RNA sequence: GCCGAAGUGGUGGAAUUGGUAGACACGCUAGGUUCAGGGUCUAGUUGGGGUUCCCCAGUGGGAGUUCGAGUCUCCCCUUCGGCA
Number, nucleotide and partner (000 for none) at each position: 001g083002c082003c081004g080005a079006a078007g077008u000009g000010g026011u025012g024013g000014a000015a000016u000017u000018g000019g000020u000021a000022g000023a000024c012025a011026c010027g000028c044029u043030a042031g041032g040033u000034u000035c000036a000037g000038g000039g000040u032041c031042u030043a029044g028045u000046u000047g000048g000049g000050g000051u000052u000053c000054c000055c000056c000057a000058g000059u000060g076061g075062g074063a073064g072065u000066u000067c000068g000069a000070g000071u000072c064073u063074c062075c061076c060077c007078u006079u005080c004081g003082g002083c001084a000